RNA: Small nucleolar RNA U105B
Organism: Cervus hanglu
RNA sequence: CCAUGUGCGGCUGAUGACAGCACAGCUGCUGAGACUCUGUGAUUGCUCAGUCUCAAAGUAAACGCGCUGACGCACUGGAA
Numbered sequence: 001c002c003a004u005g006u007g008c009g010g011c012u013g014a015u016g017a018c019a020g021c022a023c024a025g026c027u028g029c030u031g032a033g034a035c036u037c038u039g040u041g042a043u044u045g046c047u048c049a050g051u052c053u054c055a056a057a058g059u060a061a062a063c064g065c066g067c068u069g070a071c072g073c074a075c076u077g078g079a080a
Base pairs, nucleotide, nucleotide: 005075006074007073008072009071010021011020012019013018029050030049031048032047033046